[Rfam]
Rfam assigns this 94-nucleotide sequence from Zizania palustris to the family "Small nucleolar RNA Z157/R69/R10". It scores 81 bits against the family's covariance model. The family is grouped with related families in Rfam's "SNORD52 clan". The organism belongs to Zizania, within Eukaryota.
RNA sequence: CGGAGUGUUGAUGAACAUCUUUAUUUGGACUAGAGUUUCUGAUACUGCUACUUGUGGUAGUUGAAGACUAACCCUUGGCUGUCUGAGCUUCCCG
Numbered sequence: 001c002g003g004a005g006u007g008u009u010g011a012u013g014a015a016c017a018u019c020u021u022u023a024u025u026u027g028g029a030c031u032a033g034a035g036u037u038u039c040u041g042a043u044a045c046u047g048c049u050a051c052u053u054g055u056g057g058u059a060g061u062u063g064a065a066g067a068c069u070a071a072c073c074c075u076u077g078g079c080u081g082u083c084u085g086a087g088c089u090u091c092c093c094g
Base pairs, nucleotide, nucleotide: 002091003090004089005088006087036066037065038064039063043059044058045057046056047055048054